[Rfam]
RNA sequence: AAAUAAACUGAGUGGCCAGAUUAUUAUGAUUUCCGAACACAUAAUAAUCUGGCCACUUAGUGUGUAU
Dot-bracket structure: ...((.(((((((((((.((((((((((...........)))))))))).))))))))))).))...
Numbered sequence: 001a002a003a004u005a006a007a008c009u010g011a012g013u014g015g016c017c018a019g020a021u022u023a024u025u026a027u028g029a030u031u032u033c034c035g036a037a038c039a040c041a042u043a044a045u046a047a048u049c050u051g052g053c054c055a056c057u058u059a060g061u062g063u064g065u066a067u
Stems, first nucleotide, its partner, number of pairs: 004064002007061011019049010

Rfam assigns this 67-nucleotide sequence from Cnephaeus nilssonii to the family "mir-9256 microRNA precursor family". The match comes from Rfam's covariance-model search (80 bits). Rfam links the family to the GO terms miRNA-mediated post-transcriptional gene silencing and RISC complex.